[Rfam]
RNA: Fluoride riboswitch aptamer (crcB RNA motif)
RNA sequence: AUCGGACGCGGCGAUGGAUCUCCGCCGAGGUCACCGUCUCGGUGGCCUGAACCGCCCCGCCCACGGGGCUGAUGGUUCCUUCCCCCUG
Dot-bracket structure: .........((((..[[[.[[.))))...........................((((((....))))))....]].]]].........
Numbered sequence: 001a002u003c004g005g006a007c008g009c010g011g012c013g014a015u016g017g018a019u020c021u022c023c024g025c026c027g028a029g030g031u032c033a034c035c036g037u038c039u040c041g042g043u044g045g046c047c048u049g050a051a052c053c054g055c056c057c058c059g060c061c062c063a064c065g066g067g068g069c070u071g072a073u074g075g076u077u078c079c080u081u082c083c084c085c086c087u088g
Stems, first nucleotide, its partner, number of pairs: 010026004016079003020075002054069006